The record is a 48-nucleotide RNA from Agrobacterium sp. AGB01, which matches "Guanidine-II riboswitch aptamer (mini-ykkC)" in Rfam.
It scores 36 bits against the family's covariance model.
The family's consensus secondary structure is taken from published work.
RNA sequence: CCUCCGGGACGGCCCGGAUGUGGCAUUGUGUGAUCGGGGACGGCCCCA
Number, nucleotide and partner (000 for none) at each position: 001c020002c000003u018004c017005c016006g015007g014008g013009a000010c000011g000012g000013c008014c007015c006016g005017g004018a003019u000020g001021u000022g000023g000024c000025a000026u000027u000028g000029u000030g000031u000032g000033a000034u000035c000036g047037g046038g045039g044040a000041c000042g000043g000044c039045c038046c037047c036048a000